Background:
This 340-nucleotide sequence from Xanthomonas oryzae belongs to the Rfam family "Proteobacterial sRNA sX6". By type it is a small RNA. NCBI's taxonomy places the organism under Bacteria, Pseudomonadota, Lysobacterales, Lysobacteraceae, Xanthomonas oryzae pv. oryzae. Pairs were carried over by alignment from the consensus structure, which was predicted with RNAalifold. On this family, see Schmidtke et al., Nucleic Acids Res 2011: "Genome-wide transcriptome analysis of the plant pathogen Xanthomonas identifies sRNAs with putative virulence functions".
[Rfam]
RNA sequence: UCGACGAAGCUAAGGAGGACGCCAUGAAGUUCAAGCACAUCGUGAUGCUCACCCUCGGUGCGGCCGCAGUCGCAGCGCUCCCCGCCAUGGCCCAGGCCGCUCCGCAGCAGACCGGGCAGGGCGCCACCGCGCAGAAGGCGGGCGACGCCAAGGCCAAGAGCGAAGCCGAGCGCAAGGCCGAACGCCGCGCCGCCGCUGCCGCGCAGAAGCCCAAGGGCGACGUGUCACCGCGUGAGGAAGAGGAAGAACAGACGCCGGCGCGCUGAUUUUUUCGCAUCGCUUGAGUGAUACGCAGACGCCCCGGCUCAGGCCGGGGCGUCUGCAUUUGCGGCCCGCGCAA
Numbered sequence: 001u002c003g004a005c006g007a008a009g010c011u012a013a014g015g016a017g018g019a020c021g022c023c024a025u026g027a028a029g030u031u032c033a034a035g036c037a038c039a040u041c042g043u044g045a046u047g048c049u050c051a052c053c054c055u056c057g058g059u060g061c062g063g064c065c066g067c068a069g070u071c072g073c074a075g076c077g078c079u080c081c082c083c084g085c086c087a088u089g090g091c092c093c094a095g096g097c098c099g100c101u102c103c104g105c106a107g108c109a110g111a112c113c114g115g116g117c118a119g120g121g122c123g124c125c126a127c128c129g130c131g132c133a134g135a136a137g138g139c140g141g142g143c144g145a146c147g148c149c150a151a152g153g154c155c156a157a158g159a160g161c162g163a164a165g166c167c168g169a170g171c172g173c174a175a176g177g178c179c180g181a182a183c184g185c186c187g188c189g190c191c192g193c194c195g196c197u198g199c200c201g202c203g204c205a206g207a208a209g210c211c212c213a214a215g216g217g218c219g220a221c222g223u224g225u226c227a228c229c230g231c232g233u234g235a236g237g238a239a240g241a242g243g244a245a246g247a248a249c250a251g252a253c254g255c256c257g258g259c260g261c262g263c264u265g266a267u268u269u270u271u272u273c274g275c276a277u278c279g280c281u282u283g284a285g286u287g288a289u290a291c292g293c294a295g296a297c298g299c300c301c302c303g304g305c306u307c308a309g310g311c312c313g314g315g316g317c318g319u320c321u322g323c324a325u326u327u328g329c330g331g332c333c334c335g336c337g338c339a340a
Base pairs, nucleotide, nucleotide: 022243023242029183030182031181032180035178036177043174044173046172047171048170049169050168057079058078059077060076061075063073064072083140084139085138086137097120098119101116102115103114121132122131123130124129152167153166154165186234187233188232189231190230195210196209197208216226217225260338261337262336263335274280275279292323293322294321295320296319297318298317299316300315301314302313303312304311305310
Dot-bracket structure: .....................((.....((((..((......((.(((((......(((((.((.......)).)))))...((((..........((..(((..........)))..))((((....))))....))))...........(((..........))))))))))..)).))))..(((((....(((..........))).....((.......))...))))).......))................((((..........((...))...........((((((((((((((....))))))))))))))...........))))..